[Rfam]
RNA sequence: UGGCGCUUGAGGCUUUUUGCCUCAUGACGUGAAGGUGGUUUGUUACCGUGUUGUGUGGCAGAAAGCAGAAAGCCCCGUAGUUAAUUUUCAUUAACCCACGAGGCCCACUGAAUGUCUAGUCAACACCAGUAUGGCCUCUUACCGUGCAAUUUGCAAGGAGGUGUAUG
Numbered sequence: 001u002g003g004c005g006c007u008u009g010a011g012g013c014u015u016u017u018u019g020c021c022u023c024a025u026g027a028c029g030u031g032a033a034g035g036u037g038g039u040u041u042g043u044u045a046c047c048g049u050g051u052u053g054u055g056u057g058g059c060a061g062a063a064a065g066c067a068g069a070a071a072g073c074c075c076c077g078u079a080g081u082u083a084a085u086u087u088u089c090a091u092u093a094a095c096c097c098a099c100g101a102g103g104c105c106c107a108c109u110g111a112a113u114g115u116c117u118a119g120u121c122a123a124c125a126c127c128a129g130u131a132u133g134g135c136c137u138c139u140u141a142c143c144g145u146g147c148a149a150u151u152u153g154c155a156a157g158g159a160g161g162u163g164u165a166u167g
Stems, first nucleotide, its partner, number of pairs: 002075002005073004012066010023055001026052006077099002080095006100138005107130004113125002143163002
Background: The record is a 167-nucleotide RNA sequence from Klebsiella pneumoniae, which matches "sok antitoxin (CssrC)" in Rfam. On this family, see Peng et al., PLoS One 2011: "An integrated approach for finding overlooked genes in Shigella". The family has 91 seed sequences and 305 matches in Rfam 15.1. Also identified in Shigella as CssrC. Rfam links the family to the GO term mRNA binding.